[Rfam]
A member of the RNA family "Potassium channel RNA editing signal" from Edolisoma coerulescens, 114 nucleotides long.
From the family's description: This family represents a group of sequences related to the human potassium channel Kv1.1 hairpin element which directs the efficient modification of an adenosine to inosine by an adenosine deaminase acting on RNA (ADAR). The ADAR modification causes an isoleucine/valine recoding event which lies in the ion-conducting pore of the potassium channel. It is thought that this editing event targets the process of fast inactivation and allows a more rapid recovery from inactivation at negative potentials.
On this family, see Bhalla et al., Nat Struct Mol Biol 2004: "Control of human potassium channel inactivation by editing of a small mRNA hairpin".
It is annotated as a cis-regulatory element.

RNA sequence: GUGGGCUACGGGGACAUGGCGCCGGUGACGGCGGGCGGGAAGCUGGUGGGCUCGCUGUGCGCCAUCGCGGGCGUGCUGACCAUCUCGCUGCCCGUGCCCGUCAUCGUCUCCAAC
Numbered sequence: 001g002u003g004g005g006c007u008a009c010g011g012g013g014a015c016a017u018g019g020c021g022c023c024g025g026u027g028a029c030g031g032c033g034g035g036c037g038g039g040a041a042g043c044u045g046g047u048g049g050g051c052u053c054g055c056u057g058u059g060c061g062c063c064a065u066c067g068c069g070g071g072c073g074u075g076c077u078g079a080c081c082a083u084c085u086c087g088c089u090g091c092c093c094g095u096g097c098c099c100g101u102c103a104u105c106g107u108c109u110c111c112a113a114c
Base pairs, nucleotide, nucleotide: 001114002113004111005110008107009106010105011104013102014101015100018097021095022094037077038076040074049063050062051061